[Rfam]
RNA sequence: UCCAAAUGAUACUUCUUCUAACAUUGCUGCACUGGCAACACUUUAACCAACCAACCAAUGUUGCCAACAGUGCAGCAAUGUUAGAAGAAGUAUCAUUUGGAA
Numbered sequence: 001u002c003c004a005a006a007u008g009a010u011a012c013u014u015c016u017u018c019u020a021a022c023a024u025u026g027c028u029g030c031a032c033u034g035g036c037a038a039c040a041c042u043u044u045a046a047c048c049a050a051c052c053a054a055c056c057a058a059u060g061u062u063g064c065c066a067a068c069a070g071u072g073c074a075g076c077a078a079u080g081u082u083a084g085a086a087g088a089a090g091u092a093u094c095a096u097u098u099g100g101a102a
Stems, first nucleotide, its partner, number of pairs: 001102001003100001005097006012090008022080013
A member of the RNA family "mir-130 microRNA precursor family" from Strigamia maritima, 102 nucleotides long. The source organism's lineage runs through Eukaryota, Ecdysozoa, Chilopoda, Pleurostigmophora and Strigamia. Rfam links the family to the GO terms RISC complex and miRNA-mediated post-transcriptional gene silencing. The literature on the family includes a 2003 paper in Dev Cell by Houbaviy et al., "Embryonic stem cell-specific MicroRNAs".